[Rfam]
RNA sequence: GGUGGAGAAUUCCAAAAGGAUCGCAUUGAUCUAAUUCUUAUUGAUUUCUAUAUUUUUCUGGAAUCUUUUUUGCGUGGAUGAUGCAAUCCCUUAGAAACUUUUCAC
Dot-bracket structure: .(((((.(.((.(.((.((((.((((..((((...........................................)))).)))).)))).)).).)).).)))))
This 105-nucleotide RNA from Arachis hypogaea belongs to the Rfam family "mir-393 microRNA precursor family". Its family is annotated with RISC complex and miRNA-mediated post-transcriptional gene silencing in the Gene Ontology. On this family, see Kruszka et al., J Plant Physiol 2012: "Role of microRNAs and other sRNAs of plants in their changing environments". The organism belongs to Arachis, within Eukaryota. The base pairs follow the family's consensus structure.